[Rfam]
RNA sequence: GUACAUGUGAUGAGAAUCAUACAGUAUGAAAAACAAUGAUACUGUAAACGCUUUCUGAUGUA
Dot-bracket structure: .((((......((.(.(....((((((...........)))))).....).)))....))))
Numbered sequence: 001g002u003a004c005a006u007g008u009g010a011u012g013a014g015a016a017u018c019a020u021a022c023a024g025u026a027u028g029a030a031a032a033a034c035a036a037u038g039a040u041a042c043u044g045u046a047a048a049c050g051c052u053u054u055c056u057g058a059u060g061u062a
Stems, first nucleotide, its partner, number of pairs: 002062004012054002015052001017050001022044006